The record is a 74-nucleotide sequence from Sphingomonas prati, which matches "Makes More Granules Regulator RNA (mmgR)" in Rfam. The literature on the family includes a 2005 paper in Genome Biol by Corbino et al., "Evidence for a second class of S-adenosylmethionine riboswitches and other regulatory RNA motifs in alpha-proteobacteria". Its family is annotated with protein binding, response to nitrogen compound and DNA-templated transcription, termination in the Gene Ontology. It scores 46 bits against the family's covariance model. Rfam classes the family as a small RNA.
RNA sequence: GGGACAGGCCUUUCAGGCAUCCUCUCCUAAGACUUACGGGCUGGCCUUCGCGCCGGCCCUUUUUUUGUGCUCAG
Numbered sequence: 001g002g003g004a005c006a007g008g009c010c011u012u013u014c015a016g017g018c019a020u021c022c023u024c025u026c027c028u029a030a031g032a033c034u035u036a037c038g039g040g041c042u043g044g045c046c047u048u049c050g051c052g053c054c055g056g057c058c059c060u061u062u063u064u065u066u067g068u069g070c071u072c073a074g
Base pairs, nucleotide, nucleotide: 008018009017010016011015038059039058040057041056042055043054044053045052